[Rfam]
RNA sequence: UUGUGCCUGGCUCCCUGUAUGCCACUGGCUUAGAAACUAAUCUACCAAUAGAUUAGCUACUGCGGGUGGCAUGCGAGGAGCCAAGCAUAC
Dot-bracket structure: .(((((.(((((((.(((((((((...((................................))...))))))))).))))))).))))).

About this RNA:
The family of this 90-nucleotide sequence from Phoenix dactylifera is "mir-160 microRNA precursor family". Its family is annotated with miRNA-mediated post-transcriptional gene silencing and RISC complex in the Gene Ontology. It scores 77 bits against the family's covariance model.